FMN riboswitch aptamer (RFN element): a 114-nucleotide RNA sequence from Halobacteroides halobius. Taxonomically the source falls in Halobacteroides halobius (Bacteria, Bacillati, Halobacteroidaceae, Halobacteroides). A search with the family's covariance model found it, with a score of 99 bits. Rfam links the family to the GO term FMN binding.
RNA sequence: UACUUUCUUCGGGAACAGGUGCAAAUCCUAACCGGCGGUAAUAACCCGCGAGCGAAUAGCUGAUCUGGUGAAAUUCCAGAGUCGACAGUAUAGUCUGGCAGGGAGGAGAAGUUA
Numbered sequence: 001u002a003c004u005u006u007c008u009u010c011g012g013g014a015a016c017a018g019g020u021g022c023a024a025a026u027c028c029u030a031a032c033c034g035g036c037g038g039u040a041a042u043a044a045c046c047c048g049c050g051a052g053c054g055a056a057u058a059g060c061u062g063a064u065c066u067g068g069u070g071a072a073a074u075u076c077c078a079g080a081g082u083c084g085a086c087a088g089u090a091u092a093g094u095c096u097g098g099c100a101g102g103g104a105g106g107a108g109a110a111g112u113u114a
Stems, first nucleotide, its partner, number of pairs: 004111007017029003031094002033084002035049004044082002052060002064080005086097003
Dot-bracket structure: ...(((((((......(((.......))).[[((((((.....[[))))..((.....))...(((((.......)))))]])).(((....]]))).......)))))))...